[Rfam]
RNA: Group II catalytic intron D1-D4-3
Organism: Mogibacterium sp. CM50
RNA sequence: CAAGUUGCGAGGCUUGGGCGAGAAGAAGGGAUAGCGAAAUCGUAGCCUGACGAACAGAAACCUAAUACAGCGGUGCAUACGGCGGAUAAGCGAGCGCAAAGUCGUGAAGUCCAAAAGUUGGUCAUAACCCGUAUGUGUAAAUUAGGCAGGUAGAUGAGGAAAGAUUGACGA
Numbered sequence: 001c002a003a004g005u006u007g008c009g010a011g012g013c014u015u016g017g018g019c020g021a022g023a024a025g026a027a028g029g030g031a032u033a034g035c036g037a038a039a040u041c042g043u044a045g046c047c048u049g050a051c052g053a054a055c056a057g058a059a060a061c062c063u064a065a066u067a068c069a070g071c072g073g074u075g076c077a078u079a080c081g082g083c084g085g086a087u088a089a090g091c092g093a094g095c096g097c098a099a100a101g102u103c104g105u106g107a108a109g110u111c112c113a114a115a116a117g118u119u120g121g122u123c124a125u126a127a128c129c130c131g132u133a134u135g136u137g138u139a140a141a142u143u144a145g146g147c148a149g150g151u152a153g154a155u156g157a158g159g160a161a162a163g164a165u166u167g168a169c170g171a
Base pairs, nucleotide, nucleotide: 001016002015003014004013005012006011030169032167035163040157041156042155043154045151046150047149048148049147061146062145063144064143065142066141073138074137075136077134078133079132080131081130082129084112085111086110087109090105091104092103093102